[Rfam]
RNA sequence: GUCACGUGCCCUUCUUGGGCGUUUCCUCCCUAGACUUCGGGCCGCCCGCUGGGCGGUCUUUUUUUGUCCAGGC
Numbered sequence: 001g002u003c004a005c006g007u008g009c010c011c012u013u014c015u016u017g018g019g020c021g022u023u024u025c026c027u028c029c030c031u032a033g034a035c036u037u038c039g040g041g042c043c044g045c046c047c048g049c050u051g052g053g054c055g056g057u058c059u060u061u062u063u064u065u066g067u068c069c070a071g072g073c
Base pairs, nucleotide, nucleotide: 008020009019010018011017040058041057042056043055044054045053046052047051
RNA: Makes More Granules Regulator RNA (mmgR)
Organism: Lichenibacterium ramalinae